[Rfam]
RNA sequence: UGAUGACACUUUCUCCGGAAUCUCUGUACGUCCUUGAUGACCUGAGUUUGAACCCUUUUCCAGCUGAUGACUGCCCCGACUUUAUC
Numbered sequence: 001u002g003a004u005g006a007c008a009c010u011u012u013c014u015c016c017g018g019a020a021u022c023u024c025u026g027u028a029c030g031u032c033c034u035u036g037a038u039g040a041c042c043u044g045a046g047u048u049u050g051a052a053c054c055c056u057u058u059u060c061c062a063g064c065u066g067a068u069g070a071c072u073g074c075c076c077c078g079a080c081u082u083u084a085u086c
Base pairs, nucleotide, nucleotide: 002086003085004084005083006082
Notes:
Small nucleolar RNA MBII-202: an 86-nucleotide RNA from Denticeps clupeoides. A search with the family's covariance model found it, with a score of 66 bits. The family has 30 seed sequences and 745 matches in Rfam 15.1. Rfam classes the family as a C/D-box small nucleolar RNA. The literature on the family includes a 2001 paper in EMBO J by Huttenhofer et al., "RNomics: an experimental approach that identifies 201 candidates for novel, small, non-messenger RNAs in mouse".